[Rfam]
RNA sequence: AACUUGAAGCUGGAACUUCUCAUUAGAUCUGAAUGCUGGUCUUCGUUAUCAUAGAGGGAGGAAAAAGAACACUGAAGCUGGCCUCCCAGUGCUUAUAGUCUGGUAUAUAGGUUGUGGGCUAGUUUCAAACAAGG
Numbered sequence: 001a002a003c004u005u006g007a008a009g010c011u012g013g014a015a016c017u018u019c020u021c022a023u024u025a026g027a028u029c030u031g032a033a034u035g036c037u038g039g040u041c042u043u044c045g046u047u048a049u050c051a052u053a054g055a056g057g058g059a060g061g062a063a064a065a066a067g068a069a070c071a072c073u074g075a076a077g078c079u080g081g082c083c084u085c086c087c088a089g090u091g092c093u094u095a096u097a098g099u100c101u102g103g104u105a106u107a108u109a110g111g112u113u114g115u116g117g118g119c120u121a122g123u124u125u126c127a128a129a130c131a132a133g134g
Base pairs, nucleotide, nucleotide: 003061004060005059020048022046023045026041027040028039029038078122079121080120081119082118083117084116096110
RNA: Small nucleolar RNA SNORA61
Organism: Lynx pardinus